[Rfam]
Rfam assigns this 113-nucleotide RNA from Mus musculus to the family "Small nucleolar RNA SNORA71". The match comes from Rfam's covariance-model search (69 bits).

RNA sequence: CCCUGCAUCCGAAAGUGAUCUUGGCUGCCGUGUCCUGGUCAUUGGUAGUGCAGGGAAAGGAUGCGGAAAGACGGGCUCCGAGCUCGGGGCGUCUGGCCUGGAGCUUUCCUACA
Numbered sequence: 001c002c003c004u005g006c007a008u009c010c011g012a013a014a015g016u017g018a019u020c021u022u023g024g025c026u027g028c029c030g031u032g033u034c035c036u037g038g039u040c041a042u043u044g045g046u047a048g049u050g051c052a053g054g055g056a057a058a059g060g061a062u063g064c065g066g067a068a069a070g071a072c073g074g075g076c077u078c079c080g081a082g083c084u085c086g087g088g089g090c091g092u093c094u095g096g097c098c099u100g101g102a103g104c105u106u107u108c109c110u111a112c113a
Stems, first nucleotide, its partner, number of pairs: 001055008014043007023035002025032001063110001065109006082097003086093001
NCBI's taxonomy places the organism under Eukaryota, Bilateria, Gnathostomata, Euarchontoglires, Mus. Rfam's curators write: The members of this family belong to the H/ACA class of snoRNAs which bind a number of proteins (including dyskerin, Gar1p and Nop10p) to form snoRNP complexes. This class of snoRNAs are thought to guide the sites of modification of uridines to pseudouridines by forming direct base pairing interactions with substrate RNAs. For this family Rfam cites "The family of box ACA small nucleolar RNAs is defined by an evolutionarily conserved secondary structure and ubiquitous sequence elements essential for RNA accumulation" (Ganot et al., Genes Dev, 1997).